[Rfam]
RNA: TPP riboswitch aptamer (THI element)
RNA sequence: AAAUGGCUUUAGGGGUAUUCUAUAAAGAAUUGAGAGAGUCCCUUUGAACCUGAUUCGGCUAGUACCGGCGUAGGGAAAAGUUUAUGUACAGUU
Numbered sequence: 001a002a003a004u005g006g007c008u009u010u011a012g013g014g015g016u017a018u019u020c021u022a023u024a025a026a027g028a029a030u031u032g033a034g035a036g037a038g039u040c041c042c043u044u045u046g047a048a049c050c051u052g053a054u055u056c057g058g059c060u061a062g063u064a065c066c067g068g069c070g071u072a073g074g075g076a077a078a079a080g081u082u083u084a085u086g087u088a089c090a091g092u093u
Stems, first nucleotide, its partner, number of pairs: 006081005011043004016037001017030005049074004055068004